[Rfam]
RNA sequence: CUUCGCAUCUAGUACUCGGGCUGUGAAUUGUGUUAUCGUUACUGUCACAUCACAGUCAGAGUUCUAGCUGUGCGC
Numbered sequence: 001c002u003u004c005g006c007a008u009c010u011a012g013u014a015c016u017c018g019g020g021c022u023g024u025g026a027a028u029u030g031u032g033u034u035a036u037c038g039u040u041a042c043u044g045u046c047a048c049a050u051c052a053c054a055g056u057c058a059g060a061g062u063u064c065u066a067g068c069u070g071u072g073c074g075c
Base pairs, nucleotide, nucleotide: 004072005071006070009067010066011065012064014062015061016060017059021055022054023053024052025051026050030048031047032046
mir-11 microRNA precursor family: a 75-nucleotide sequence from Arctia plantaginis. On this family, see Chen et al., Insect Mol Biol 2010: "Next-generation small RNA sequencing for microRNAs profiling in the honey bee Apis mellifera". Rfam 15.1 lists 138 matches to the family in 136 species. The match comes from Rfam's covariance-model search (66 bits). Rfam links the family to the GO terms RISC complex, negative regulation of cell death and miRNA-mediated post-transcriptional gene silencing. The organism belongs to Arctia, within Eukaryota.